[Rfam]
Nucleotides: 073
Stems, first nucleotide, its partner, number of pairs: 004070003008066010022052002025050006
Number, partner (000 for none) and nucleotide at each position: 001000u002000g003000u004070a005069u006068g007000u008066a009065g010064c011063u012062g013061g014060u015059u016058g017057a018000c019000a020000u021000c022052g023051g024000g025050u026049c027048a028047g029046a030045u031000c032000u033000a034000g035000u036000u037000u038000u039000g040000a041000a042000a043000g044000c045030a046029u047028u048027u049026g050025g051023u052022c053000c054000c055000c056000u057017u058016c059015a060014a061013c062012c063011a064010g065009c066008u067000g068006u069005a070004u071000c072000a073000g
Shown here is a 73-nucleotide RNA sequence from Drosophila albomicans, a member of the family "mir-133 microRNA precursor family". The literature on the family includes a 2002 paper in Curr Biol by Lagos-Quintana et al., "Identification of tissue-specific microRNAs from mouse". Lineage of the source: Eukaryota > Insecta > Eumetabola > Panorpida > Drosophila. Its family is annotated with RISC complex and miRNA-mediated post-transcriptional gene silencing in the Gene Ontology. About the family: mir-133 was first experimentally characterised in mouse and homologues have since been discovered in several other species. The mature sequence is excised from the 3' arm of the hairpin. The base pairs follow the family's consensus structure, which was predicted with PFOLD.